Shown here is a 322-nucleotide sequence from Sinosuthora webbiana, a member of the family "7SK RNA". NCBI's taxonomy places the organism under Eukaryota, Metazoa, Gnathostomata, Neoaves, Sinosuthora. It is annotated as a non-coding RNA gene. The literature on the family includes a 1991 paper in Mol Cell Biol by Wassarman and Steitz, "Structural analyses of the 7SK ribonucleoprotein (RNP), the most abundant human small RNP of unknown function". 7SK was discovered as an abundant small nuclear RNA in the mid-70s but a possible function has only recently been suggested.
RNA sequence: GGAUGUGAGGGCAGUCUGGCUGCAACAUGUGUCACCCCACUGAUGACCAGCUGAUUGAGCUGACCUGGCUGGCUCGGUGGGUGUCCACUUCCUCCUCAAUGCUCCAUGCACAUCCCUACCAAAGCUGCACACUGCUUGAAAAGGGUGAUCUCCCCAUGGAGAUGGUGCUGCUCAUUGGUCAAGGGUAUACACUAUAGCCCUGCCUCCUGCUAGAACUAGCCUCCAAACAAGCUCAAGGUUUAUGGCUUAUGAUGUAACUGCAGUUUCUCUAAUGAUUUUGCAGUGACCUGCCAGAGAUCCAAAGAAAAUAUUUUCUGAAUGG
Number, nucleotide and partner (000 for none) at each position: 001g105002g104003a103004u000005g000006u098007g097008a096009g095010g094011g093012c000013a090014g089015u000016c000017u000018g088019g000020c000021u000022g000023c000024a000025a084026c083027a082028u081029g000030u079031g078032u077033c076034a000035c072036c071037c068038c067039a066040c000041u000042g065043a000044u063045g000046a000047c059048c000049a000050g000051c000052u000053g000054a000055u000056u000057g000058a000059g047060c000061u000062g000063a044064c000065c042066u039067g038068g037069c000070u000071g036072g035073c000074u000075c000076g033077g032078u031079g030080g000081g028082u027083g026084u025085c000086c000087a000088c018089u014090u013091c000092c000093u011094c010095c009096u008097c007098a006099a000100u000101g000102c000103u003104c002105c001106a000107u000108g000109c000110a000111c000112a000113u165114c164115c000116c161117u160118a000119c000120c138121a137122a136123a000124g135125c134126u000127g000128c000129a000130c000131a000132c000133u000134g125135c124136u122137u121138g120139a000140a000141a000142a000143g154144g153145g152146u000147g000148a000149u000150c000151u000152c145153c144154c143155c000156a000157u000158g000159g000160a117161g116162a000163u000164g114165g113166u000167g000168c000169u000170g000171c000172u000173c000174a000175u000176u000177g000178g000179u000180c000181a000182a000183g000184g000185g000186u000187a000188u000189a000190c000191a000192c000193u000194a000195u000196a265197g264198c263199c000200c000201u000202g259203c000204c000205u256206c000207c254208u000209g000210c251211u000212a000213g000214a000215a000216c000217u000218a247219g246220c245221c244222u000223c000224c000225a000226a000227a000228c000229a000230a000231g243232c000233u000234c000235a000236a000237g000238g000239u000240u000241u000242a000243u231244g221245g220246c219247u218248u000249a000250u000251g210252a000253u000254g207255u000256a205257a000258c000259u202260g000261c000262a000263g198264u197265u196266u000267c000268u000269c000270u000271a000272a000273u000274g000275a000276u000277u000278u000279u000280g000281c000282a000283g000284u000285g000286a000287c000288c322289u321290g320291c000292c317293a316294g315295a314296g313297a311298u000299c000300c000301a000302a000303a000304g000305a000306a000307a000308a000309u000310a000311u297312u000313u296314u295315c294316u293317g292318a000319a000320u290321g289322g288